[Rfam]
Shown here is a 120-nucleotide RNA sequence from Glycine max, a member of the family "MIR1520 microRNA precursor family". The family's consensus secondary structure was predicted with RNAalifold. Clan: MIR1520 microRNA precursor clan. It scores 98 bits against the family's covariance model. Its family is annotated with RISC complex and miRNA-mediated post-transcriptional gene silencing in the Gene Ontology.

RNA sequence: GUUACAAAAAAUGUUCACUAUCACGUAUCAUGUUUUGAUUGGAUAUCAAUUUCAUGGAAGAUGAAAUGUAUUGUUAUUUUCAUUGACCAAUCAUAACAUGACACAUGCCAAUCAUUAUUC
Dot-bracket structure: .....................((.((..(((.((.(.(((................................................))).).)).)))..)).)).............